[Rfam]
RNA sequence: UCGAAGAAUCCGUAAAGCUCAGGAGGGAUAGCGCCAUGGAUGAUAACAAGGGGACUGUAAAGAUGAAGCUCAAAAAGGUUCCAUUCAUCUAAUGCGCUAUCUAUCCUGAGUUUUAUGGCUUCUUCCU
Numbered sequence: 001u002c003g004a005a006g007a008a009u010c011c012g013u014a015a016a017g018c019u020c021a022g023g024a025g026g027g028a029u030a031g032c033g034c035c036a037u038g039g040a041u042g043a044u045a046a047c048a049a050g051g052g053g054a055c056u057g058u059a060a061a062g063a064u065g066a067a068g069c070u071c072a073a074a075a076a077g078g079u080u081c082c083a084u085u086c087a088u089c090u091a092a093u094g095c096g097c098u099a100u101c102u103a104u105c106c107u108g109a110g111u112u113u114u115a116u117g118g119c120u121u122c123u124u125c126c127u
Base pairs, nucleotide, nucleotide: 010118016112017111018110019109020108021107022106023105024104026102027101028100029099030098031097032096033095034094

Rfam assigns this 127-nucleotide sequence from Phoenix dactylifera to the family "MIR390 microRNA precursor family". On this family, see Gustafson et al., Nucleic Acids Res 2005: "ASRP: the Arabidopsis Small RNA Project Database". The match comes from Rfam's covariance-model search (93 bits). NCBI's taxonomy places the organism under Eukaryota, Mesangiospermae, commelinids, Phoeniceae, Phoenix.